[Rfam]
RNA sequence: UCCCGGCUUUCCAUCAGCCGGGGUUACUGAAGAGGCACACCUUCAUUGCCGGAAGUGCGGUUGGGAUUAUCCCUCCAAUCCAUGGCAGACAAAGCGAAUUAGCGCCGCUUGCGGCACUGGUUCAUUAUCCGCGCUUCGCGCAUUUGCAUGGUUC
Numbered sequence: 001u002c003c004c005g006g007c008u009u010u011c012c013a014u015c016a017g018c019c020g021g022g023g024u025u026a027c028u029g030a031a032g033a034g035g036c037a038c039a040c041c042u043u044c045a046u047u048g049c050c051g052g053a054a055g056u057g058c059g060g061u062u063g064g065g066a067u068u069a070u071c072c073c074u075c076c077a078a079u080c081c082a083u084g085g086c087a088g089a090c091a092a093a094g095c096g097a098a099u100u101a102g103c104g105c106c107g108c109u110u111g112c113g114g115c116a117c118u119g120g121u122u123c124a125u126u127a128u129c130c131g132c133g134c135u136u137c138g139c140g141c142a143u144u145u146g147c148a149u150g151g152u153u154c
Base pairs, nucleotide, nucleotide: 001023002022003021004020005019006018007017008016034050035049036048037047057134058133059132085095104117107115108114

Background:
This 154-nucleotide RNA sequence from Rhizobium sp. SEMIA4064 belongs to the Rfam family "speF leader". For this family Rfam cites "Evidence for a second class of S-adenosylmethionine riboswitches and other regulatory RNA motifs in alpha-proteobacteria" (Corbino et al., Genome Biol, 2005). The family's consensus secondary structure was predicted with RNAalifold. It scores 112 bits against the family's covariance model. Its family is annotated with regulation of gene expression in the Gene Ontology. It is annotated as a cis-regulatory leader.